[Rfam]
RNA: Glycine riboswitch aptamer
Organism: Actinoplanes sp. TBRC 11911
RNA sequence: CGCAGCCACGCGGGAGAGUCCGCCCUGUCAAGGGGUGGCGCCGAAGGGGCAAAUCCUCCCCGGAACCUCUCAGGCAAAAGGACCGCGUGGGCAGG
Numbered sequence: 001c002g003c004a005g006c007c008a009c010g011c012g013g014g015a016g017a018g019u020c021c022g023c024c025c026u027g028u029c030a031a032g033g034g035g036u037g038g039c040g041c042c043g044a045a046g047g048g049g050c051a052a053a054u055c056c057u058c059c060c061c062g063g064a065a066c067c068u069c070u071c072a073g074g075c076a077a078a079a080g081g082a083c084c085g086c087g088u089g090g091g092c093a094g095g
Stems, first nucleotide, its partner, number of pairs: 006090008020038004040075003043071002047069003054062001